[Rfam]
Nucleotides: 077
Stems, first nucleotide, its partner, number of pairs: 009069003013065002018060002023055004029050005034044003
Number, partner (000 for none) and nucleotide at each position: 001000u002000u003000g004000c005000g006000u007000g008000a009069g010068g011067g012000a013065u014064u015000g016000g017000a018060g019059u020000g021000g022000a023055a024054a025053u026052c027000c028000u029050u030049u031048u032047g033046c034044u035043u036042u037000u038000g039000a040000a041000a042036a043035a044034a045000a046033g047032c048031a049030a050029a051000a052026g053025a054024u055023u056000g057000c058000a059019a060018c061000g062000g063000a064014a065013a066000g067011c068010c069009c070000g071000g072000c073000c074000c075000u076000c077000u